RNA: SAM (S-adenosyl methionine) riboswitch aptamer
Organism: Ferrimicrobium acidiphilum
RNA sequence: GCUCAAGAAUUCUGUCUUAAGCCCUCCGGCAUGACAGAAUGGCAACCGCUCCCGCAAGACGGUGCUACCGGAGGAAGAGCUGGUCGGUCUCGUUGAUCGGCAAGGCGGGAAG
Numbered sequence: 001g002c003u004c005a006a007g008a009a010u011u012c013u014g015u016c017u018u019a020a021g022c023c024c025u026c027c028g029g030c031a032u033g034a035c036a037g038a039a040u041g042g043c044a045a046c047c048g049c050u051c052c053c054g055c056a057a058g059a060c061g062g063u064g065c066u067a068c069c070g071g072a073g074g075a076a077g078a079g080c081u082g083g084u085c086g087g088u089c090u091c092g093u094u095g096a097u098c099g100g101c102a103a104g105g106c107g108g109g110a111a112g
Stems, first nucleotide, its partner, number of pairs: 001080004009040007021030001041066003046062003050057001083101007